[Rfam]
RNA sequence: CCUCUUCCAUUUUUCAGCAAAAGCGCUUAUAUACGACCUGCCGGUUUCGACCGGCUAUGGUGAUAAACGGACGAUGUAAUAAACCUAUUGGACCCGGGGGCGGUACCCGGCGCCUCCACCACAAUGCAGCUUGCAUAUCCAUGCUGCCUUGUGGCGGGGGCGAAAUAGGAUCGACAAGGGUGUAAAGAUCGCUCUUUUGCUCGGCAUGAUACCACCGUUAUCGGGUCAAAAGUGUAGUUGCAAACGACAACAACGCUAAGGGAUAUGCUGUAGCUGCCUAAUGGCGGUUCCAGAAUUCCGAUCUAAGUCCUUCUGGUUAGCACCUUGAGGCGGGGUUCGGAGGUACCUGGCAACAGAAACCUCCACU
Number, nucleotide and partner (000 for none) at each position: 001c000002c000003u000004c000005u000006u000007c000008c000009a000010u000011u000012u000013u000014u000015c000016a000017g000018c000019a000020a000021a000022a000023g000024c000025g000026c000027u000028u000029a000030u000031a000032u000033a000034c000035g000036a000037c000038c000039u000040g055041c054042c053043g052044g051045u000046u000047u000048c000049g000050a000051c044052c043053g042054g041055c040056u000057a000058u000059g201060g200061u199062g198063a197064u000065a000066a000067a000068c000069g194070g193071a000072c191073g190074a189075u188076g000077u000078a000079a000080u000081a000082a000083a000084c180085c179086u178087a000088u177089u176090g175091g000092a000093c000094c110095c109096g108097g107098g106099g000100g000101c000102g000103g000104u000105a000106c098107c097108c096109g095110g094111c162112g161113c160114c159115u158116c157117c156118a000119c000120c000121a000122c000123a000124a000125u000126g000127c000128a000129g000130c000131u000132u000133g000134c000135a000136u000137a000138u000139c000140c000141a000142u000143g000144c000145u000146g000147c000148c000149u000150u000151g000152u000153g000154g000155c000156g117157g116158g115159g114160g113161c112162g111163a000164a000165a000166u000167a000168g000169g000170a000171u000172c000173g000174a000175c090176a089177a088178g086179g085180g084181u000182g000183u000184a000185a000186a000187g000188a075189u074190c073191g072192c000193u070194c069195u000196u000197u063198u062199g061200c060201u059202c217203g216204g215205c000206a000207u228208g227209a226210u000211a000212c224213c223214a000215c204216c203217g202218u000219u000220a000221u000222c000223g213224g212225g000226u209227c208228a207229a000230a000231a000232g000233u000234g000235u000236a000237g000238u000239u000240g000241c000242a000243a000244a000245c000246g000247a000248c000249a000250a000251c000252a000253a000254c000255g000256c000257u000258a000259a000260g000261g000262g000263a000264u000265a000266u000267g000268c000269u000270g000271u000272a000273g000274c000275u000276g000277c000278c000279u000280a000281a000282u000283g000284g000285c000286g000287g000288u000289u000290c000291c000292a000293g000294a000295a000296u000297u000298c000299c000300g000301a000302u000303c000304u000305a000306a000307g000308u000309c000310c000311u000312u000313c000314u000315g000316g000317u000318u000319a000320g000321c000322a000323c000324c000325u000326u000327g000328a000329g000330g000331c000332g000333g348334g347335g346336u345337u000338c000339g364340g363341a362342g361343g360344u359345a336346c335347c334348u333349g000350g000351c000352a000353a000354c000355a000356g000357a000358a000359a344360c343361c342362u341363c340364c339365a000366c000367u000
Shown here is a 367-nucleotide RNA sequence from Paramesorhizobium leguminum, a member of the family "Alphaproteobacteria transfer-messenger RNA". Pairs were carried over by alignment from the consensus structure, which is taken from published work. Lineage of the source: Bacteria > Pseudomonadota > Hyphomicrobiales > Phyllobacteriaceae > Paramesorhizobium. A reference for the family is Williams and Bartel (1996), "Phylogenetic analysis of tmRNA secondary structure", RNA. Its family is annotated with RNA catabolic process in the Gene Ontology. By type it is a non-coding RNA gene. About the family: Bacterial tmRNA, also known as 10Sa RNA or SsrA, is named for its dual tRNA and mRNA-like properties.